[Rfam]
RNA sequence: CAAGCUGCGAGCCCGGAGGAUUCAGCUGAUUGGGAUGUAGUGUACGCAUGCCUGGUGCGUCGAGAGACCGGAAUAAGAUGUAGUGGUCCACUCCUCUUCUGGGAGUGGGGUGCGGU
Numbered sequence: 001c002a003a004g005c006u007g008c009g010a011g012c013c014c015g016g017a018g019g020a021u022u023c024a025g026c027u028g029a030u031u032g033g034g035a036u037g038u039a040g041u042g043u044a045c046g047c048a049u050g051c052c053u054g055g056u057g058c059g060u061c062g063a064g065a066g067a068c069c070g071g072a073a074u075a076a077g078a079u080g081u082a083g084u085g086g087u088c089c090a091c092u093c094c095u096c097u098u099c100u101g102g103g104a105g106u107g108g109g110g111u112g113c114g115g116u
Base pairs, nucleotide, nucleotide: 007113011111012110013109014108016106

The family of this 116-nucleotide part of an RNA from Vidua macroura is "Eukaryotic large subunit ribosomal RNA". For this family Rfam cites "The comparative RNA web (CRW) site: an online database of comparative sequence and structure information for ribosomal, intron, and other RNAs" (Cannone et al., BMC Bioinformatics, 2002). The family's consensus secondary structure is taken from published work. It scores 2892 bits against the family's covariance model. Its family is annotated with ribosome and structural constituent of ribosome in the Gene Ontology.